About this RNA: The family of this 170-nucleotide RNA sequence from Desulfofarcimen acetoxidans is "M-box riboswitch aptamer (ykoK leader)". The source organism's lineage runs through Bacteria, Clostridia, Eubacteriales, Peptococcaceae and Desulfofarcimen acetoxidans. For this family Rfam cites "New RNA motifs suggest an expanded scope for riboswitches in bacterial genetic control" (Barrick et al., Proc Natl Acad Sci U S A, 2004). Rfam's curators write: M-box riboswitch, also know as ykoK leader is described as a metaloregulatory RNA that sense divalent metals and function as a genetic control element of genes related to divalent metal transport in bacteria. It was first reported upstream of the B.subtilis ykoK gene and genes with related functions in other bacteria. Rfam's curators put it in the seed alignment.
[Rfam]
RNA sequence: AUAAUUCCUCGUUAGGUGAGGCUUCUGCAUAGAACAUAUGCCACUGCCCGGAUAGGUCGAAAGACCGUAACGGGUUAACAGGUAUUACCGGAUUAAGGUUUUAUCUAAUGUGGCUGAGAUUUAUGUCUCUAGCUGUGCAUGUGCCAAAACUCGUACGAGUGGGGAAUGGG
Numbered sequence: 001a002u003a004a005u006u007c008c009u010c011g012u013u014a015g016g017u018g019a020g021g022c023u024u025c026u027g028c029a030u031a032g033a034a035c036a037u038a039u040g041c042c043a044c045u046g047c048c049c050g051g052a053u054a055g056g057u058c059g060a061a062a063g064a065c066c067g068u069a070a071c072g073g074g075u076u077a078a079c080a081g082g083u084a085u086u087a088c089c090g091g092a093u094u095a096a097g098g099u100u101u102u103a104u105c106u107a108a109u110g111u112g113g114c115u116g117a118g119a120u121u122u123a124u125g126u127c128u129c130u131a132g133c134u135g136u137g138c139a140u141g142u143g144c145c146a147a148a149a150c151u152c153g154u155a156c157g158a159g160u161g162g163g164g165a166a167u168g169g170g
Base pairs, nucleotide, nucleotide: 005166006165007164008163009162010161011156012155013096015151016150017149020145021144022143025141026139027138028137029136030135031134032133040114041113042112043111044110046075047074048073049072050071055066056065057064058063081105082104083103084102087099088098089097116129117128118127